About this RNA: Rfam assigns this 136-nucleotide RNA sequence from Apteryx owenii to the family "Small nucleolar RNA SNORA61". Lineage of the source: Eukaryota > Teleostomi > Sarcopterygii > Aves > Apteryx. The base pairs follow the family's consensus structure, which was predicted with PFOLD. Rfam describes the family as follows. ACA61 is a member of the H/ACA class of snoRNA that guide the sites of modification of uridines to pseudouridines. It scores 83 bits against the family's covariance model.
RNA sequence: UCCCUCCCGAUCCCUUUCCCAUCAGAUCUGAAUACCGAUCUUGUGGUCGAAAAAGGAGGAAAAGUAGAAUGCAAACUGGUCUCAGCCUCUUUGCUGGUACAGUCUUGCUCUGAGAAGGGCCAGUUUGAAGACAUUG
Numbered sequence: 001u002c003c004c005u006c007c008c009g010a011u012c013c014c015u016u017u018c019c020c021a022u023c024a025g026a027u028c029u030g031a032a033u034a035c036c037g038a039u040c041u042u043g044u045g046g047u048c049g050a051a052a053a054a055g056g057a058g059g060a061a062a063a064g065u066a067g068a069a070u071g072c073a074a075a076c077u078g079g080u081c082u083c084a085g086c087c088u089c090u091u092u093g094c095u096g097g098u099a100c101a102g103u104c105u106u107g108c109u110c111u112g113a114g115a116a117g118g119g120c121c122a123g124u125u126u127g128a129a130g131a132c133a134u135u136g
Stems, first nucleotide, its partner, number of pairs: 003059005019046003023043001025040004076123007